[Rfam]
Nucleotides: 075
Base pairs, nucleotide, nucleotide: 008019009018010017011016038060039059040058041057042056043055044054045053046052
Number, partner (000 for none) and nucleotide at each position: 001000c002000c003000a004000c005000g006000c007000c008019g009018c010017c011016c012000c013000u014000g015000u016011g017010g018009g019008c020000g021000u022000u023000u024000c025000c026000u027000c028000c029000c030000u031000a032000g033000a034000c035000u036000u037000c038060g039059g040058g041057c042056c043055g044054u045053u046052c047000c048000g049000c050000a051000a052046g053045g054044g055043c056042g057041g058040c059039c060038u061000u062000u063000u064000u065000u066000g067000u068000u069000g070000c071000u072000g073000c074000g075000c

Record summary:
Rfam assigns this 75-nucleotide sequence from Methylobacterium sp. 4-46 to the family "Makes More Granules Regulator RNA (mmgR)". Rfam classes the family as a small RNA. Pairs were carried over by alignment from the consensus structure. Rfam's curators write: SuhB later renamed mmgR (makes more granules regulator) was a putative non-coding RNA found multiple times in the Agrobacterium tumefaciens genome and related alpha-proteobacteria. Other non-coding RNAs uncovered in the same analysis include: speF, ybhL, metA, and serC.Several studies inSinorhizobium meliloti showed that suhB element is indeed a non-coding RNA:firstly it was detected on Northern blot and called Sm8RNA, secondly in an RNAseq study referred to as SmelC689.The mutant phenotype's (strain lacking the small RNA) cytoplasm contains higher content of polyhydroxybutyrate (PBH)storage granules than wild type strain. The sRNA is required to limit the PBH intracellular accumulation when the nitrogen-fixing Sinorhizobium meliloti is under condition of surplus carbon in relation to nitrogen. It has been renamed to mmgR. Further study confirmed that mmgR fine-tunes the regulation of PBH storage.Northern blot confirmed the expression of the sRNA in other rhizobia species. MmgR homologues were found in most alpha-proteobacteria. Taxonomically the source falls in Methylobacterium (Bacteria, Pseudomonadati, Pseudomonadota, Alphaproteobacteria).